[Rfam]
Rfam assigns this 216-nucleotide sequence from Vagococcus coleopterorum to the family "T-box leader".
From the family's description: Uncharged tRNA acts as the effector for transcription antitermination of genes in the T-box leader family. T-boxes are found upstream of many aminoacyl-tRNA synthetase genes and some amino acid biosynthetic genes usually in Gram-positive bacteria. The anticodon of a specific tRNA base pairs to a specifier sequence within the T-box motif, and the NCCA acceptor tail of the tRNA base pairs to a conserved bulge in the T-box antiterminator hairpin.
The family's consensus secondary structure is taken from published work.
The organism belongs to Vagococcus, within Bacteria.
RNA sequence: AUAUUUCAAUUCUUUGAGAAUUAGUAAUUUGAAUUUCUUUUACAGAGAGCUAGCGGUUGGUGUGAGUUAGUAUUGAAACCAAAUGAAUCCAUCUCAUUAUAGUAAACGAAGAAAUAAUUCGUUUCGGCAAACAACCGUUAUCCGUUAAUCAAGUGCAAUAUAAAAUAUUAUAUUGAAUUUGGGUGGUACCGCGAAUAAAGUCUUUUCGUCCCAAGG
Numbered sequence: 001a002u003a004u005u006u007c008a009a010u011u012c013u014u015u016g017a018g019a020a021u022u023a024g025u026a027a028u029u030u031g032a033a034u035u036u037c038u039u040u041u042a043c044a045g046a047g048a049g050c051u052a053g054c055g056g057u058u059g060g061u062g063u064g065a066g067u068u069a070g071u072a073u074u075g076a077a078a079c080c081a082a083a084u085g086a087a088u089c090c091a092u093c094u095c096a097u098u099a100u101a102g103u104a105a106a107c108g109a110a111g112a113a114a115u116a117a118u119u120c121g122u123u124u125c126g127g128c129a130a131a132c133a134a135c136c137g138u139u140a141u142c143c144g145u146u147a148a149u150c151a152a153g154u155g156c157a158a159u160a161u162a163a164a165a166u167a168u169u170a171u172a173u174u175g176a177a178u179u180u181g182g183g184u185g186g187u188a189c190c191g192c193g194a195a196u197a198a199a200g201u202c203u204u205u206u207c208g209u210c211c212c213a214a215g216g
Stems, first nucleotide, its partner, number of pairs: 008100001015096004027084005040072001049071006104124007125137003156175007180213004191209005